The family of this 117-nucleotide sequence from Egicoccus halophilus is "ALIL pseudoknot".

[Rfam]
RNA sequence: AGCAACUUUCUUCGCGGCGGAGCUCGACCGCCCACUGCGGUGAUGGUCGACUACAUCGACCUUCACAAAGACGUCUACGGGAUCGAGCCGAUCUGCCAGGUGCUGCCGAUCGCCCCG
Numbered sequence: 001a002g003c004a005a006c007u008u009u010c011u012u013c014g015c016g017g018c019g020g021a022g023c024u025c026g027a028c029c030g031c032c033c034a035c036u037g038c039g040g041u042g043a044u045g046g047u048c049g050a051c052u053a054c055a056u057c058g059a060c061c062u063u064c065a066c067a068a069a070g071a072c073g074u075c076u077a078c079g080g081g082a083u084c085g086a087g088c089c090g091a092u093c094u095g096c097c098a099g100g101u102g103c104u105g106c107c108g109a110u111c112g113c114c115c116c117g
Stems, first nucleotide, its partner, number of pairs: 016032005078117004089112002092109002095106002
On this family, see Mazauric et al., J Biol Chem 2008: "Apical loop-internal loop RNA pseudoknots: a new type of stimulator of -1 translational frameshifting in bacteria". Gene Ontology term of the family: positive regulation of translational frameshifting. The source organism's lineage runs through Bacteria, Bacillati, Actinomycetota, Egicoccaceae and Egicoccus. The match comes from Rfam's covariance-model search (78 bits).